[Rfam]
RNA sequence: AAUUUAAUAAACCGAUUCAUUCAUAUAAUCGCAGGGAUAUGGCCUGCAAGUUUCUACCGGAUUACCUUAAAUGAUCUGACUAUGAGUGAGCAAUGGAUGGGA
Numbered sequence: 001a002a003u004u005u006a007a008u009a010a011a012c013c014g015a016u017u018c019a020u021u022c023a024u025a026u027a028a029u030c031g032c033a034g035g036g037a038u039a040u041g042g043c044c045u046g047c048a049a050g051u052u053u054c055u056a057c058c059g060g061a062u063u064a065c066c067u068u069a070a071a072u073g074a075u076c077u078g079a080c081u082a083u084g085a086g087u088g089a090g091c092a093a094u095g096g097a098u099g100g101g102a
Base pairs, nucleotide, nucleotide: 018088019087020086021085022084023083024082025081029049031047032046033045034044035043058078059077060076061075062074063073064072
This 102-nucleotide RNA sequence from Cytobacillus horneckiae belongs to the Rfam family "Purine riboswitch aptamer". From the family's description: Riboswitches are metabolite binding domains within certain messenger RNAs that serve as precision sensors for their corresponding targets. It scores 87 bits against the family's covariance model. Pairs were carried over by alignment from the consensus structure, which is taken from published work.